[Rfam]
Nucleotides: 047
Base pairs, nucleotide, nucleotide: 006021007020008019009018010017011016
Number, partner (000 for none) and nucleotide at each position: 001000c002000c003000a004000a005000a006021g007020g008019c009018u010017c011016u012000u013000u014000u015000c016011a017010g018009a019008g020007c021006c022000a023000c024000u025000u026000c027000a028000g029000c030000u031000c032000u033000c034000g035000a036000a037000g038000a039000a040000a041000g042000a043000g044000c045000u046000g047000u